A member of the RNA family "Ascomycota telomerase RNA" from Cadophora sp. M221, 170 nucleotides of a longer RNA. The family is grouped with related families in Rfam's "Telomerase clan". The family's RNA type in Rfam is non-coding RNA gene. Rfam 15.1 lists 475 matches to the family in 456 species.
RNA sequence: CACAACGUCUUUCAUCCUCGCGAUGCUUGACACCCUUCCCUCCCCGUUCCAUCUUACCCAUAGAUGGACACGGCAGAGACGACAAGCGGUUUUUGUUGAUGUCUUUUGUCCGCUAUUGCCCUGUUUCGAUUCCAUAUCGAGGCAGAGGAAACAUAAAACUAAUCUCAGAG
Numbered sequence: 001c002a003c004a005a006c007g008u009c010u011u012u013c014a015u016c017c018u019c020g021c022g023a024u025g026c027u028u029g030a031c032a033c034c035c036u037u038c039c040c041u042c043c044c045c046g047u048u049c050c051a052u053c054u055u056a057c058c059c060a061u062a063g064a065u066g067g068a069c070a071c072g073g074c075a076g077a078g079a080c081g082a083c084a085a086g087c088g089g090u091u092u093u094u095g096u097u098g099a100u101g102u103c104u105u106u107u108g109u110c111c112g113c114u115a116u117u118g119c120c121c122u123g124u125u126u127c128g129a130u131u132c133c134a135u136a137u138c139g140a141g142g143c144a145g146a147g148g149a150a151a152c153a154u155a156a157a158a159c160u161a162a163u164c165u166c167a168g169a170g
Stems, first nucleotide, its partner, number of pairs: 007033002012030003016025001018023001039081001040078003044073004048068004056061001098164003101159002104157003107153003119148002121145004127139004

Its family is annotated with telomere maintenance via telomerase, telomerase activity and telomerase catalytic core complex in the Gene Ontology. Taxonomically the source falls in Cadophora (Eukaryota, Ascomycota, leotiomyceta, Ploettnerulaceae). For this family Rfam cites "The common ancestral core of vertebrate and fungal telomerase RNAs" (Qi et al., Nucleic Acids Res, 2013).